RNA sequence: AUUUAGAGAUGAUGAUUCAUAUCGGAGGCUGUUUCUGAGGAUGAGCCAAGGGCUCUCCCAGUGCUGCGAAAAAAUUGAUUUGCCAUUCUGAUCAAAAG
Number, nucleotide and partner (000 for none) at each position: 001a000002u000003u096004u095005a000006g093007a092008g000009a000010u000011g000012a000013u000014g000015a000016u000017u000018c000019a000020u000021a000022u000023c000024g000025g000026a000027g000028g000029c000030u000031g000032u000033u000034u000035c000036u000037g000038a000039g000040g000041a000042u000043g055044a054045g053046c052047c000048a000049a000050g000051g000052g046053c045054u044055c043056u000057c000058c000059c000060a000061g000062u000063g000064c000065u000066g083067c082068g081069a080070a079071a000072a000073a000074a000075u000076u000077g000078a000079u070080u069081u068082g067083c066084c000085a000086u000087u000088c000089u000090g000091a000092u007093c006094a000095a004096a003097a000098g000
A member of the RNA family "Small nucleolar RNA Z119" from Miscanthus lutarioriparius, 98 nucleotides long.
NCBI's taxonomy places the organism under Eukaryota, Viridiplantae, commelinids, Andropogoneae, Miscanthus.
For this family Rfam cites "The high diversity of snoRNAs in plants: identification and comparative study of 120 snoRNA genes from Oryza sativa" (Chen et al., Nucleic Acids Res, 2003).
By type it is a C/D-box small nucleolar RNA.
Rfam links the family to the GO terms RNA processing and nucleolus.